[Rfam]
Nucleotides: 102
Stems, first nucleotide, its partner, number of pairs: 001102001004099004013044001015043004022033003027082004045074004050070002052067003083091002
Number, partner (000 for none) and nucleotide at each position: 001102u002000a003000a004099u005098u006097a007096u008000a009000a010000a011000g012000a013044a014000c015043g016042a017041a018040g019000c020000g021000a022033g023032a024031g025000a026000u027082c028081a029080g030079g031024c032023u033022c034000u035000a036000u037000g038000a039000a040018c041017u042016u043015c044013u045074g046073g047072c048071a049000a050070c051069c052067u053066g054065c055000c056000a057000u058000c059000a060000a061000c062000a063000a064000u065054g066053u067052a068000a069051g070050g071048u072047g073046c074045c075000a076000a077000u078000u079030c080029c081028u082027g083091c084090c085000c086000a087000a088000g089000u090084g091083g092000a093000a094000c095000g096007a097006u098005a099004a100000a101000c102001a

The family of this 102-nucleotide RNA sequence from Cytophaga sp. is "SAM riboswitch aptamer (S box leader)".
Taxonomically the source falls in Cytophaga (Bacteria, Bacteroidota, Cytophagia, Cytophagaceae).
Rfam describes the family as follows. The SAM riboswitch is found upstream of a number of genes which code for proteins involved in methionine or cysteine biosynthesis in Gram-positive bacteria.